RNA sequence: GCGAAGGGACGACCCUUCGUCAGACGAUCAUCCGGGACGGCCCGG
Numbered sequence: 001g002c003g004a005a006g007g008g009a010c011g012a013c014c015c016u017u018c019g020u021c022a023g024a025c026g027a028u029c030a031u032c033c034g035g036g037a038c039g040g041c042c043c044g045g
Stems, first nucleotide, its partner, number of pairs: 001020008032045005
The record is a 45-nucleotide RNA sequence from Sphingopyxis panaciterrulae, which matches "Guanidine-II riboswitch aptamer (mini-ykkC)" in Rfam.